[Rfam]
RNA sequence: CCAAAGGCUCUUUUCAGAGCCACCCACACUUUCAGUUAAAAGAGUU
Dot-bracket structure: .....((((((....)))))).........................
A member of the RNA family "Histone 3' UTR stem-loop" from Ornithorhynchus anatinus, 46 nucleotides long.
Its family is annotated with mRNA 3'-end processing by stem-loop binding and cleavage in the Gene Ontology.
From the family's description: The mRNAs of metazoan histone genes lack a poly-A tail. 3' end processing occurs at a site between a highly conserved stem-loop (modelled by this family) and a purine rich region around 20 nts downstream (the histone downstream element, or HDE). The stem-loop is bound by a 31 kDa stem-loop binding protein (SLBP - also termed the histone hairpin binding protein, or HBP).
It is annotated as a cis-regulatory element.
The match comes from Rfam's covariance-model search (42 bits).